[Rfam]
RNA: mir-75 microRNA precursor family
RNA sequence: UGCCUCGACGAGUUGAGGUCGGUUGCAAGCUUCAAUACAUUUAUGAAAUUGAUAUUAAAGCUACCAACCGGCUUCAAAUCGAAAAGUGCG
Numbered sequence: 001u002g003c004c005u006c007g008a009c010g011a012g013u014u015g016a017g018g019u020c021g022g023u024u025g026c027a028a029g030c031u032u033c034a035a036u037a038c039a040u041u042u043a044u045g046a047a048a049u050u051g052a053u054a055u056u057a058a059a060g061c062u063a064c065c066a067a068c069c070g071g072c073u074u075c076a077a078a079u080c081g082a083a084a085a086g087u088g089c090g
Base pairs, nucleotide, nucleotide: 002089003088005086009081010080011079013077014076015075016074017073018072019071020070021069022068023067024066025065028062029061030060031059032058034056035055036054037053038051039050